[Rfam]
RNA sequence: CUCCCUACGGCCUGUCUCGGGAAUGCCGCAACUCCUGAGCCCCGUGGGGCGGCUGGUCCGGACGCGGAUAGAGUGGCCUCUUCGACAUGCCGCUCCGGACCAGCCACUUA
Numbered sequence: 001c002u003c004c005c006u007a008c009g010g011c012c013u014g015u016c017u018c019g020g021g022a023a024u025g026c027c028g029c030a031a032c033u034c035c036u037g038a039g040c041c042c043c044g045u046g047g048g049g050c051g052g053c054u055g056g057u058c059c060g061g062a063c064g065c066g067g068a069u070a071g072a073g074u075g076g077c078c079u080c081u082u083c084g085a086c087a088u089g090c091c092g093c094u095c096c097g098g099a100c101c102a103g104c105c106a107c108u109u110a
Stems, first nucleotide, its partner, number of pairs: 003049008016039006051105011

About this RNA: A member of the RNA family "EcpR1" from Devosia sp. LC5, 110 nucleotides long. Pairs were carried over by alignment from the consensus structure, which was predicted with WAR. Rfam classes the family as a small RNA. Taxonomically the source falls in Devosia (Bacteria, Pseudomonadati, Hyphomicrobiales, Devosiaceae). Perviously named SmelC291, SmrC10, or Sra33. According to its overproduction phenotype it was renamed Elongated Cell Phenotype RNA1.